[Rfam]
RNA sequence: GGGCCGGUUCACUUUAAGUUCGAAUACCAAGCCUGUCUAUAAACAGUUUGGUGUUCUACCUUACAGUGAGUCGACCG
Dot-bracket structure: .....((((((((.(((.......((((((((.............)))))))).......))).)))))))).....
RNA: mir-971 microRNA precursor family
Organism: Apis mellifera